[Rfam]
Shown here is a 395-nucleotide RNA sequence from Qipengyuania vulgaris, a member of the family "Bacterial RNase P class A".
Ribonuclease P (RNase P) is a ubiquitous endoribonuclease, found in archaea, bacteria and eukarya as well as chloroplasts and mitochondria.

RNA sequence: CCAGGGGGCCGGGCAGCCGCGUGACUUCGGUCGCGAGGAAAGUCCGGGCUCCACGAGACAAGGGUGGCGGGUAACGCCCGCCGGAUGCAAGUCCAGGGAAAGUGCCACAGAGAGCAUACCGCCGAUGGCUUCUUCGGAAGAUCAGGCAAGGGUGAAAGGGUGCGGUAAGAGCGCACCGGGGUUCUGGUAACAGCGCCCGCAUGGCAAACCCCACCCGGAGCAAGGCCGAAUAGGGGCGGCGUGCCGAAAGGCAGGGGUGUUUCUCCCCAGUCGCCCGGGUUGGCUGCUCGAGCCAUGGAGCAAUCCAUGGCCCAGACGAAUGGCUGCCGCCGUGCGGCUGGUGUGCAAGCAUACCGCGUGCGGAACAGAACCCGGCUUACAGGCCCCCUGGCAUU
Numbered sequence: 001c002c003a004g005g006g007g008g009c010c011g012g013g014c015a016g017c018c019g020c021g022u023g024a025c026u027u028c029g030g031u032c033g034c035g036a037g038g039a040a041a042g043u044c045c046g047g048g049c050u051c052c053a054c055g056a057g058a059c060a061a062g063g064g065u066g067g068c069g070g071g072u073a074a075c076g077c078c079c080g081c082c083g084g085a086u087g088c089a090a091g092u093c094c095a096g097g098g099a100a101a102g103u104g105c106c107a108c109a110g111a112g113a114g115c116a117u118a119c120c121g122c123c124g125a126u127g128g129c130u131u132c133u134u135c136g137g138a139a140g141a142u143c144a145g146g147c148a149a150g151g152g153u154g155a156a157a158g159g160g161u162g163c164g165g166u167a168a169g170a171g172c173g174c175a176c177c178g179g180g181g182u183u184c185u186g187g188u189a190a191c192a193g194c195g196c197c198c199g200c201a202u203g204g205c206a207a208a209c210c211c212c213a214c215c216c217g218g219a220g221c222a223a224g225g226c227c228g229a230a231u232a233g234g235g236g237c238g239g240c241g242u243g244c245c246g247a248a249a250g251g252c253a254g255g256g257g258u259g260u261u262u263c264u265c266c267c268c269a270g271u272c273g274c275c276c277g278g279g280u281u282g283g284c285u286g287c288u289c290g291a292g293c294c295a296u297g298g299a300g301c302a303a304u305c306c307a308u309g310g311c312c313c314a315g316a317c318g319a320a321u322g323g324c325u326g327c328c329g330c331c332g333u334g335c336g337g338c339u340g341g342u343g344u345g346c347a348a349g350c351a352u353a354c355c356g357c358g359u360g361c362g363g364a365a366c367a368g369a370a371c372c373c374g375g376c377u378u379a380c381a382g383g384c385c386c387c388c389u390g391g392c393a394u395u
Stems, first nucleotide, its partner, number of pairs: 001391010011380001012328007020035006040378003044375005049220004057263002060260001062216005067081005082096001083094004097211002102209002104205003119151002121147003127142001129140004159177006178200001179198004184193003224285004234276006254268004292311008
The family's consensus secondary structure is taken from published work.